[Rfam]
Rfam assigns this 146-nucleotide RNA sequence from Pasteurella bettyae to the family "Molybdenum/Tungsten riboswitch aptamer (Moco RNA motif)". Lineage of the source: Bacteria > Pseudomonadati > Pasteurellales > Pasteurellaceae > Pasteurella bettyae. On this family, see Weinberg et al., Nucleic Acids Res 2007: "Identification of 22 candidate structured RNAs in bacteria using the CMfinder comparative genomics pipeline".
RNA sequence: AAAUUUUGAUUAUACCGAGCUUGUUUACCUACAUUUUUUAGAAAAUAGGGUAGCAAUGCCAGCAACAGCAGUUCAUGUUGCUCAGGGAUAAGAUUGGAAACGAUUUAUCCUCUCAUUUUUAGUAAAGGUAUUAAAUGAACACGAUU
Numbered sequence: 001a002a003a004u005u006u007u008g009a010u011u012a013u014a015c016c017g018a019g020c021u022u023g024u025u026u027a028c029c030u031a032c033a034u035u036u037u038u039u040a041g042a043a044a045a046u047a048g049g050g051u052a053g054c055a056a057u058g059c060c061a062g063c064a065a066c067a068g069c070a071g072u073u074c075a076u077g078u079u080g081c082u083c084a085g086g087g088a089u090a091a092g093a094u095u096g097g098a099a100a101c102g103a104u105u106u107a108u109c110c111u112c113u114c115a116u117u118u119u120u121a122g123u124a125a126a127g128g129u130a131u132u133a134a135a136u137g138a139a140c141a142c143g144a145u146u
Base pairs, nucleotide, nucleotide: 004139006137012131013130014129015128016127019059020058022056025053026052027051028050029049033046034045035044036043061082062081063080064079065078066077067076085111086110087109088108089107090106092105093104094103095102096101112122113121